[Rfam]
RNA sequence: AAUGAUAUAUAACGUUUCUCUCAUAUAAUAGCGGGGAUAUGGCCCGCAAGUUUCUACCCGAUUACCGUAAAUAAUUGGACUAUGAGAGAAGGUAGCAGUGUU
Numbered sequence: 001a002a003u004g005a006u007a008u009a010u011a012a013c014g015u016u017u018c019u020c021u022c023a024u025a026u027a028a029u030a031g032c033g034g035g036g037a038u039a040u041g042g043c044c045c046g047c048a049a050g051u052u053u054c055u056a057c058c059c060g061a062u063u064a065c066c067g068u069a070a071a072u073a074a075u076u077g078g079a080c081u082a083u084g085a086g087a088g089a090a091g092g093u094a095g096c097a098g099u100g101u102u
Stems, first nucleotide, its partner, number of pairs: 018088008029049001031047005058078007
RNA: Purine riboswitch aptamer